RNA sequence: UCGACGAGGACCGUGUGAAUCAAGUAGUUUAGUGAUUCACGCGAUUCUCGUAA
Numbered sequence: 001u002c003g004a005c006g007a008g009g010a011c012c013g014u015g016u017g018a019a020u021c022a023a024g025u026a027g028u029u030u031a032g033u034g035a036u037u038c039a040c041g042c043g044a045u046u047c048u049c050g051u052a053a
Stems, first nucleotide, its partner, number of pairs: 004051007012043011

This 53-nucleotide RNA from Helianthus annuus belongs to the Rfam family "Plastid-ccsA-ndhD-2 3UTR RNA".
Rfam describes the family as follows. Plastid ccsA-ndhD-2 is a non-coding RNA (ncRNA) recognised in plastids. It was found in the three prime untranslated region (3UTR) of ccsA and ndhD genes, its 3UTR location suggests a role in transcript maturation.
Lineage of the source: Eukaryota > Viridiplantae > Streptophytina > Euphyllophyta > Helianthus.
The base pairs follow the family's consensus structure, which was predicted with LocARNA.